[Rfam]
RNA sequence: GAACAUGUUUUCUAGGGUUCCGUGGUGUAAUGCCAGUCUGGUCCGAGAGAAAACACACCUGUAUAAAUUGCGGAAAAGUGUGGACUUUUGCAAUGGGUUUUCCGCUAUUUGGUGUCCACGGAAGGAUAAAAGCCUGGGAGAA
Numbered sequence: 001g002a003a004c005a006u007g008u009u010u011u012c013u014a015g016g017g018u019u020c021c022g023u024g025g026u027g028u029a030a031u032g033c034c035a036g037u038c039u040g041g042u043c044c045g046a047g048a049g050a051a052a053a054c055a056c057a058c059c060u061g062u063a064u065a066a067a068u069u070g071c072g073g074a075a076a077a078g079u080g081u082g083g084a085c086u087u088u089u090g091c092a093a094u095g096g097g098u099u100u101u102c103c104g105c106u107a108u109u110u111g112g113u114g115u116c117c118a119c120g121g122a123a124g125g126a127u128a129a130a131a132g133c134c135u136g137g138g139a140g141a142a
Base pairs, nucleotide, nucleotide: 007054008053009052010051011050012049015044016043020041021040022038023035024034025033026032027031055115056114057113058112059111061109117137119140123135124134125133
Dot-bracket structure: ......((((((..((...((((((((...)))))..).)).))....))))))(((((.(...............................................).))))).(.[...(((.......))).)..]..